[Rfam]
Nucleotides: 104
Stems, first nucleotide, its partner, number of pairs: 007057006015047002020044002022041001023038006058077002061075005079099001081102001085097003
Number, partner (000 for none) and nucleotide at each position: 001000a002000g003000a004000g005000u006000u007057g008056g009055c010054a011053g012052c013000u014000a015047g016046g017000g018000u019000u020044c021043c022041g023038a024037u025036u026035u027034c028033c029000u030000c031000a032000c033028g034027g035026g036025a037024g038023u039000g040000u041022c042000u043021g044020g045000u046016c047015c048000g049000a050000g051000a052012g053011u054010u055009g056008c057007c058077g059076c060000c061075g062074g063073a064072g065071g066000u067000c068000c069000a070000a071065c072064c073063u074062c075061c076059g077058u078000g079099c080000a081102c082000g083000g084000c085097g086096g087095g088000a089000u090000a091000a092000a093000a094000g095087c096086c097085c098000g099079g100000g101000a102081g103000a104000c
Shown here is a 104-nucleotide RNA sequence from Bradyrhizobium erythrophlei, a member of the family "Guanidine-I riboswitch aptamer". Lineage of the source: Bacteria > Pseudomonadati > Hyphomicrobiales > Nitrobacteraceae > Bradyrhizobium. Pairs were carried over by alignment from the consensus structure.